Shown here is a 285-nucleotide sequence from Ktedonobacteria bacterium brp13, a member of the family "HNH endonuclease-associated RNA and ORF (HEARO) RNA". Pairs were carried over by alignment from the consensus structure, which is taken from published work. For this family Rfam cites "Exceptional structured noncoding RNAs revealed by bacterial metagenome analysis" (Weinberg et al., Nature, 2009). A search with the family's covariance model found it, with a score of 93 bits. The organism belongs to Ktedonobacteria, within Bacteria.

RNA sequence: GUCAGGAACCUUGUCCCCUAAACGGGACGGGCAUGUAGAGAUGGGGUGGUUUCUGCCCGUCUUCUCCACAAGCUUACCUGACCAGUCCCAGCCAGGACUAUUCCUUGGAUGCCCAUUGGGGCGGGAAACGGUUAUCGGGCUACGAUAUCGGCAGUGUUCAAGAACGUACCAGUGGGUGCUUUGCCAGCCCGCUGCGCUAUAACUUCUGAGUUAACCAGGUCUACGAGGGUUAAGCCAGUGCUCAGGAGACGUGCAGACCGAUAUCCUCGACGAGGCACACAUUAC
Numbered sequence: 001g002u003c004a005g006g007a008a009c010c011u012u013g014u015c016c017c018c019u020a021a022a023c024g025g026g027a028c029g030g031g032c033a034u035g036u037a038g039a040g041a042u043g044g045g046g047u048g049g050u051u052u053c054u055g056c057c058c059g060u061c062u063u064c065u066c067c068a069c070a071a072g073c074u075u076a077c078c079u080g081a082c083c084a085g086u087c088c089c090a091g092c093c094a095g096g097a098c099u100a101u102u103c104c105u106u107g108g109a110u111g112c113c114c115a116u117u118g119g120g121g122c123g124g125g126a127a128a129c130g131g132u133u134a135u136c137g138g139g140c141u142a143c144g145a146u147a148u149c150g151g152c153a154g155u156g157u158u159c160a161a162g163a164a165c166g167u168a169c170c171a172g173u174g175g176g177u178g179c180u181u182u183g184c185c186a187g188c189c190c191g192c193u194g195c196g197c198u199a200u201a202a203c204u205u206c207u208g209a210g211u212u213a214a215c216c217a218g219g220u221c222u223a224c225g226a227g228g229g230u231u232a233a234g235c236c237a238g239u240g241c242u243c244a245g246g247a248g249a250c251g252u253g254c255a256g257a258c259c260g261a262u263a264u265c266c267u268c269g270a271c272g273a274g275g276c277a278c279a280c281a282u283u284a285c
Base pairs, nucleotide, nucleotide: 001082002081003080004079005078006077008075010031011030013028014027017025018024032043033042034041085271086270087269090141091140092139093138144265145264146263147262148261149260156258157257166200167199170194171193172192173191174190175189176188177187180279182277183276184275185274203248204247205246206245207244208243209242210241211240216238218236219235221234222233223231